[Rfam]
RNA sequence: CACUCGAUGUGGCAGCGCGCAAGCGCCUUGACCGGACUGAACAGGGGCCGGUACCGCGCACGUCGAGGAUGCUCGAGGGCCGAAUGUCGGGGGACAUUCGGCCCUCAUUUU
Number, nucleotide and partner (000 for none) at each position: 001c000002a000003c067004u066005c065006g064007a063008u062009g061010u060011g059012g057013c056014a000015g028016c000017g026018c025019g024020c000021a000022a000023g000024c019025g018026c017027c000028u015029u000030g000031a052032c051033c050034g049035g048036a000037c045038u044039g000040a000041a000042c000043a000044g038045g037046g000047g000048c035049c034050g033051g032052u031053a000054c000055c000056g013057c012058g000059c011060a010061c009062g008063u007064c006065g005066a004067g003068g000069a000070u000071g000072c000073u000074c000075g106076a105077g104078g103079g102080c101081c100082g099083a098084a097085u096086g095087u094088c093089g000090g000091g000092g000093g088094a087095c086096a085097u084098u083099c082100g081101g080102c079103c078104c077105u076106c075107a000108u000109u000110u000111u000
RNA: Xanthomonadaceae sRNA asX1